[Rfam]
Rfam assigns this 87-nucleotide sequence from Tetraodon nigroviridis to the family "mir-22 microRNA precursor family".
Gene Ontology terms of the family: miRNA-mediated post-transcriptional gene silencing and RISC complex.
Rfam 15.1 lists 884 matches to the family in 639 species.

RNA sequence: GUUGCCUCACAGUCGUUCUUCACUGGCUAGCUUUAUGUCCUCCGACCCCACGCUAAAGCUGCCAGUUGAAGAGCUGUUGUGUGUAAC
Numbered sequence: 001g002u003u004g005c006c007u008c009a010c011a012g013u014c015g016u017u018c019u020u021c022a023c024u025g026g027c028u029a030g031c032u033u034u035a036u037g038u039c040c041u042c043c044g045a046c047c048c049c050a051c052g053c054u055a056a057a058g059c060u061g062c063c064a065g066u067u068g069a070a071g072a073g074c075u076g077u078u079g080u081g082u083g084u085a086a087c
Stems, first nucleotide, its partner, number of pairs: 004084002009080003016073006025063003029060007
The base pairs follow the family's consensus structure, which was predicted with RNAalifold. Lineage of the source: Eukaryota > Vertebrata > Teleostomi > Neopterygii > Tetraodon. For this family Rfam cites "Identification of novel genes coding for small expressed RNAs" (Lagos-Quintana et al., Science, 2001).